[Rfam]
Shown here is a 127-nucleotide RNA sequence from Ladona fulva, a member of the family "Small Cajal body specific RNA 8".

RNA sequence: AGGGGGUUAGAUACCCAGUUUCCUGUAAAUUAAAGGUUACUGACACUUAAUCCCCUAAAAGAAAGAUUGCUUUUUGAUAACCAAAGCCUCAGAAGCUAGAGGCUAUGGACAGUCUAAGCAUACAAUG
Number, nucleotide and partner (000 for none) at each position: 001a000002g056003g055004g054005g053006g052007u000008u000009a000010g000011a000012u000013a000014c000015c000016c042017a041018g040019u000020u000021u000022c036023c035024u034025g000026u000027a000028a000029a000030u000031u000032a000033a000034a024035g023036g022037u000038u000039a000040c018041u017042g016043a000044c000045a000046c000047u000048u000049a000050a000051u000052c006053c005054c004055c003056u002057a000058a000059a000060a000061g000062a000063a000064a000065g000066a000067u000068u120069g119070c118071u117072u116073u000074u000075u000076g000077a000078u000079a000080a000081c108082c107083a106084a000085a000086g103087c102088c101089u100090c000091a000092g000093a000094a000095g000096c000097u000098a000099g000100a089101g088102g087103c086104u000105a000106u083107g082108g081109a000110c000111a000112g000113u000114c000115u000116a072117a071118g070119c069120a068121u000122a000123c000124a000125a000126u000127g000
Taxonomically the source falls in Ladona (Eukaryota, Ecdysozoa, Pancrustacea, Hexapoda). Rfam's curators write: scaRNAs are a specific class of small nuclear RNAs which localise to the Cajal bodies and guide the modification of RNA polymerase II transcribed spliceosomal RNAs U1, U2, U4, U5 and U12. U92 belong to the H/ACA box class of guide RNAs as it has the predicted hairpin-hinge-hairpin-tail structure, conserved H/ACA-box motifs and is found associated with GAR1. The family has 22 seed sequences and 955 matches in Rfam 15.1. Its family is annotated with Cajal body, nucleolus and RNA processing in the Gene Ontology. A reference for the family is Darzacq et al. (2002), "Cajal body-specific small nuclear RNAs: a novel class of 2'-O-methylation and pseudouridylation guide RNAs", EMBO J. Rfam classes the family as a small Cajal body RNA. Pairs were carried over by alignment from the consensus structure, which is taken from published work.